The record is a 75-nucleotide sequence from Micrococcus sp. HMSC067E09, which matches "tRNA" in Rfam. Transfer RNA (tRNA) molecules are approximately 80 nucleotides in length. The source organism's lineage runs through Bacteria, Actinomycetota, Actinomycetes, Micrococcaceae and Micrococcus. Pairs were carried over by alignment from the consensus structure, which is taken from published work.
RNA sequence: GCCCCCGUGGCCCAACUGGCAGAGGCAGGCGACUUAAAAUCGUCUUCGGUGCGGGUUCGACUCCCGCCGGGGGCA
Dot-bracket structure: (((((((..(((...........))).(((((.......)))))......(((((.......)))))))))))).